mir-5928 microRNA precursor family: a 75-nucleotide sequence from Haemonchus placei. A search with the family's covariance model found it, with a score of 73 bits. The organism belongs to Haemonchus, within Eukaryota. The family's consensus secondary structure was predicted with RNAalifold. Its family is annotated with RISC complex and miRNA-mediated post-transcriptional gene silencing in the Gene Ontology.
RNA sequence: GGUCCAAAUUCGAAGUAGAGUAGACUAGUAGGAUCAACUGACCCUGGUAAACUACUCUACUUCGAGUUUGUGCCC
Numbered sequence: 001g002g003u004c005c006a007a008a009u010u011c012g013a014a015g016u017a018g019a020g021u022a023g024a025c026u027a028g029u030a031g032g033a034u035c036a037a038c039u040g041a042c043c044c045u046g047g048u049a050a051a052c053u054a055c056u057c058u059a060c061u062u063c064g065a066g067u068u069u070g071u072g073c074c075c
Base pairs, nucleotide, nucleotide: 001074002073003072005070006069007068008067009066011064012063013062014061015060016059017058018057019056020055021054022053023052026049027048029046030045032043034041035040